The record is a 110-nucleotide RNA sequence from Oxalobacter formigenes, which matches "SAH (S-adenosyl-L-homocysteine) riboswitch aptamer" in Rfam. Rfam links the family to the GO terms S-adenosylhomocysteine metabolic process and regulation of gene expression. The base pairs follow the family's consensus structure, which is taken from published work.
RNA sequence: ACGUCCGAGGAGCGUUGCAACAAAAUGAUUCCGUCAUUUCUGCCAUAUAGUUGAAAAAUACGGAAAUAUUUUAGCCAGGCUCGGAUUCUUCAAAACGGCGCUCACGUUAC
Numbered sequence: 001a002c003g004u005c006c007g008a009g010g011a012g013c014g015u016u017g018c019a020a021c022a023a024a025a026u027g028a029u030u031c032c033g034u035c036a037u038u039u040c041u042g043c044c045a046u047a048u049a050g051u052u053g054a055a056a057a058a059u060a061c062g063g064a065a066a067u068a069u070u071u072u073a074g075c076c077a078g079g080c081u082c083g084g085a086u087u088c089u090u091c092a093a094a095a096c097g098g099c100g101c102u103c104a105c106g107u108u109a110c
Base pairs, nucleotide, nucleotide: 003086004085005084006083007082008081021074023072024071025070